A member of the RNA family "Small nucleolar RNA SNORA44" from Amazona aestiva, 130 nucleotides long.
Gene Ontology terms of the family: RNA processing and nucleolus.
Rfam's curators write: ACA44 is a member of the H/ACA class of snoRNA that guide the sites of modification of uridines to pseudouridines.
The base pairs follow the family's consensus structure, which was predicted with PFOLD.
The family's RNA type in Rfam is H/ACA-box small nucleolar RNA.
RNA sequence: GGGCAUGUUCAUCCAAGAGCUGUGGCUCAGUACAGUAGCUUCAGGUCUCCAACAACAUGCCAGAGCAAUGGAAGGUCUUUGACUGCUGGGCUUCUCCUGCCCGUUGCUGUCACUCGCCCCUCCUAUAGGC
Number, nucleotide and partner (000 for none) at each position: 001g000002g000003g000004c000005a000006u000007g000008u000009u000010c000011a000012u000013c044014c000015a000016a000017g000018a040019g039020c038021u037022g036023u035024g000025g000026c000027u000028c000029a000030g000031u000032a000033c000034a000035g023036u022037a021038g020039c019040u018041u000042c000043a000044g013045g000046u000047c000048u000049c000050c000051a000052a000053c000054a000055a000056c000057a000058u000059g000060c000061c000062a000063g000064a000065g000066c000067a000068a000069u000070g123071g122072a121073a000074g119075g118076u000077c000078u000079u000080u000081g000082a000083c000084u000085g110086c109087u000088g102089g101090g100091c000092u000093u000094c000095u000096c000097c000098u000099g000100c090101c089102c088103g000104u000105u000106g000107c000108u000109g086110u085111c000112a000113c000114u000115c000116g000117c000118c075119c074120c000121u072122c071123c070124u000125a000126u000127a000128g000129g000130c000